The record is a 147-nucleotide RNA sequence from Hibiscus syriacus, which matches "small nucleolar RNA snoR134" in Rfam.
The family's RNA type in Rfam is H/ACA-box small nucleolar RNA.
The organism belongs to Hibiscus, within Eukaryota.
A search with the family's covariance model found it, with a score of 86 bits.
The base pairs follow the family's consensus structure, which was predicted with RNAalifold.
RNA sequence: CUGCACGAACUCUCCCGGGCUUAUCUGAAUCUCUAUCAGUGAAGAUCAAAGCCCCAAUGUUGGUGCUAGAUUCAUGCCGUUUCACGUGUUGCGGAAUAGCUUUCGCUUAUCGACCGGCUCUUCUGUGUCAAAUCGGCGGCUAAAUCU
Dot-bracket structure: ..((((.(((......((((((.(((................)))..).)))))....))).)))).........((((((.....((.((((((...((................))...)))))).))....)))))).......